[Rfam]
Source information: A member of the RNA family "SAM (S-adenosyl methionine) riboswitch aptamer" from Streptacidiphilus pinicola, 111 nucleotides long. Pairs were carried over by alignment from the consensus structure, which is taken from published work. SAM-IV is a mRNA element that regulates gene expression via direct sensing of S-adenosylmethionine (SAM or AdoMet). SAM-IV riboswitches share conserved nucleotide positions with the previously described SAM-I riboswitches sequence analysis and molecular recognition experiments suggest that SAM-I and SAM-IV riboswitches share similar ligand binding sites, but have different scaffolds. Lineage of the source: Bacteria > Bacillati > Actinomycetota > Streptomycetaceae > Streptacidiphilus.

RNA sequence: GGUCAAGAGUGUCAGCGACAAGCCCUGGCUUGCUGGCCGGCAACCCUCCGUCGCGGUGGGGUGCUCCAGGUGACGACCGGACAGGACGGAGCCGUUCUGUAAGCGCGAGGC
Numbered sequence: 001g002g003u004c005a006a007g008a009g010u011g012u013c014a015g016c017g018a019c020a021a022g023c024c025c026u027g028g029c030u031u032g033c034u035g036g037c038c039g040g041c042a043a044c045c046c047u048c049c050g051u052c053g054c055g056g057u058g059g060g061g062u063g064c065u066c067c068a069g070g071u072g073a074c075g076a077c078c079g080g081a082c083a084g085g086a087c088g089g090a091g092c093c094g095u096u097c098u099g100u101a102a103g104c105g106c107g108a109g110g111c
Stems, first nucleotide, its partner, number of pairs: 001078004009038001011037006021030002039065003044061003048056002081100008